[Rfam]
The family of this 105-nucleotide sequence from Protea cynaroides is "Small nucleolar RNA Z279/snoR105/snoR108". This family includes the plant snoRNAs known as Z279, snoR105 and snoR108. The organism belongs to Protea, within Eukaryota. It scores 92 bits against the family's covariance model. Rfam 15.1 lists 906 matches to the family in 223 species.
RNA sequence: GGGAUGUGAUGAGUGGUCAUUGCUCGCAUUUUAAAUGCGAGAGGGGUGCCUACUCCAAGCCUGGUUACGACAAUAGGGCACUCUCAAAGUUACCAGUCUGAUCCC
Numbered sequence: 001g002g003g004a005u006g007u008g009a010u011g012a013g014u015g016g017u018c019a020u021u022g023c024u025c026g027c028a029u030u031u032u033a034a035a036u037g038c039g040a041g042a043g044g045g046g047u048g049c050c051u052a053c054u055c056c057a058a059g060c061c062u063g064g065u066u067a068c069g070a071c072a073a074u075a076g077g078g079c080a081c082u083c084u085c086a087a088a089g090u091u092a093c094c095a096g097u098c099u100g101a102u103c104c105c
Base pairs, nucleotide, nucleotide: 001105002104003103004102014095015094016093017092023041024040025039026038027037043084044083045082046081047080048079049078050077062076064074065073